The record is a 106-nucleotide RNA sequence from Corynebacterium maris, which matches "mraW RNA" in Rfam.
[Rfam]
RNA sequence: CCGCGGAGCGCGUGUACGGACUCUGCUCGAGGCCGGGUGCUCUGGUGUACUUCCCCGACAUCAGAUCCCCGCUUCGGGCAGAGCCCUAUACGCGCCCCAGUGGACC
Numbered sequence: 001c002c003g004c005g006g007a008g009c010g011c012g013u014g015u016a017c018g019g020a021c022u023c024u025g026c027u028c029g030a031g032g033c034c035g036g037g038u039g040c041u042c043u044g045g046u047g048u049a050c051u052u053c054c055c056c057g058a059c060a061u062c063a064g065a066u067c068c069c070c071g072c073u074u075c076g077g078g079c080a081g082a083g084c085c086c087u088a089u090a091c092g093c094g095c096c097c098c099a100g101u102g103g104a105c106c
Stems, first nucleotide, its partner, number of pairs: 010093007018086002021083013037069001039067001041065008
The source organism's lineage runs through Bacteria, Mycobacteriales, Corynebacteriaceae, Corynebacterium and Corynebacterium maris.